[Rfam]
RNA sequence: GGCUUUCUUCGCGGCGGAGCUCGACCGCCCACACACCAGGUAGUGGCCUACAUCGACCUGUACCGGCAGGAAUUCGGGGUCGAGCCGAUCUGCGAGGUGUUGCAGACCGCCCCG
Numbered sequence: 001g002g003c004u005u006u007c008u009u010c011g012c013g014g015c016g017g018a019g020c021u022c023g024a025c026c027g028c029c030c031a032c033a034c035a036c037c038a039g040g041u042a043g044u045g046g047c048c049u050a051c052a053u054c055g056a057c058c059u060g061u062a063c064c065g066g067c068a069g070g071a072a073u074u075c076g077g078g079g080u081c082g083a084g085c086c087g088a089u090c091u092g093c094g095a096g097g098u099g100u101u102g103c104a105g106a107c108c109g110c111c112c113c114g
Stems, first nucleotide, its partner, number of pairs: 013029005075114005086109002089106007
ALIL pseudoknot: a 114-nucleotide RNA from Nocardiopsis composta. By type it is a cis-regulatory element. Rfam links the family to the GO term positive regulation of translational frameshifting. A search with the family's covariance model found it, with a score of 90 bits.